[Rfam]
RNA sequence: UCUACGCAAUCAUACAGAACUCGUAUAUUUUCGAUUUAUGGCUUGAAAAGUUUCUACCUGCUAGCCAAAAUAGCAGACUAUGAGGUAUUAUUCUAUGAUA
Numbered sequence: 001u002c003u004a005c006g007c008a009a010u011c012a013u014a015c016a017g018a019a020c021u022c023g024u025a026u027a028u029u030u031u032c033g034a035u036u037u038a039u040g041g042c043u044u045g046a047a048a049a050g051u052u053u054c055u056a057c058c059u060g061c062u063a064g065c066c067a068a069a070a071u072a073g074c075a076g077a078c079u080a081u082g083a084g085g086u087a088u089u090a091u092u093c094u095a096u097g098a099u100a
Base pairs, nucleotide, nucleotide: 018086020084021083022082023081024080025079029048030047031046032045033044034043058076059075060074061073062072063071